[Rfam]
RNA: Manganese Mn2+ riboswitch aptamer (yybP-ykoY)
RNA sequence: CAGUCACUCAUUGGGGAGUAGCCGCCUGCCGGGCUCCAGGCAGGGCGCAUAUCAACAUGCUUGGAGGUUUCGGCCUUCAUGGUAUGCGCAGAUUUCGAUGAUCGGCGAUCAAUCGAAACC
Number, nucleotide and partner (000 for none) at each position: 001c000002a000003g000004u000005c000006a000007c000008u000009c000010a000011u000012u000013g000014g000015g000016g000017a000018g000019u000020a000021g000022c000023c000024g000025c000026c043027u042028g041029c040030c039031g000032g000033g000034c000035u000036c000037c000038a000039g030040g029041c028042a027043g026044g000045g089046c088047g087048c086049a085050u084051a083052u082053c081054a080055a000056c000057a000058u000059g000060c000061u000062u079063g078064g077065a076066g075067g074068u073069u000070u000071c000072g000073g068074c067075c066076u065077u064078c063079a062080u054081g053082g052083u051084a050085u049086g048087c047088g046089c045090a000091g000092a000093u000094u000095u000096c000097g000098a000099u000100g000101a000102u000103c000104g000105g000106c000107g000108a000109u000110c000111a000112a000113u000114c000115g000116a000117a000118a000119c000120c000